[Rfam]
RNA: Small nucleolar RNA SNORD121A
RNA sequence: GUCCAAAAUACUGUGGUGAUAUAUUUUGCAAGCACAUAGCUGAUUCCUCUGUAUGGAAAAUGGCUGUUGCUGAGUGAUUUUUAGAU
Numbered sequence: 001g002u003c004c005a006a007a008a009u010a011c012u013g014u015g016g017u018g019a020u021a022u023a024u025u026u027u028g029c030a031a032g033c034a035c036a037u038a039g040c041u042g043a044u045u046c047c048u049c050u051g052u053a054u055g056g057a058a059a060a061u062g063g064c065u066g067u068u069g070c071u072g073a074g075u076g077a078u079u080u081u082u083a084g085a086u
Stems, first nucleotide, its partner, number of pairs: 001086003005082002008079001009076003